[Rfam]
RNA sequence: AAGGUCGAGAGGCGCUGCAACGGGUUCCGGCCCGCCACGCUCGACCGGGUGUGACGAACAAGGGCGCCUCCCAGAC
Numbered sequence: 001a002a003g004g005u006c007g008a009g010a011g012g013c014g015c016u017g018c019a020a021c022g023g024g025u026u027c028c029g030g031c032c033c034g035c036c037a038c039g040c041u042c043g044a045c046c047g048g049g050u051g052u053g054a055c056g057a058a059c060a061a062g063g064g065c066g067c068c069u070c071c072c073a074g075a076c
Stems, first nucleotide, its partner, number of pairs: 003046006021034005

SAH (S-adenosyl-L-homocysteine) riboswitch aptamer: a 76-nucleotide RNA sequence from Crossiella cryophila.
The source organism's lineage runs through Bacteria, Bacillati, Pseudonocardiales, Pseudonocardiaceae and Crossiella.
The family's consensus secondary structure is taken from published work.
On this family, see Wang et al., Mol Cell 2008: "Riboswitches that sense S-adenosylhomocysteine and activate genes involved in coenzyme recycling".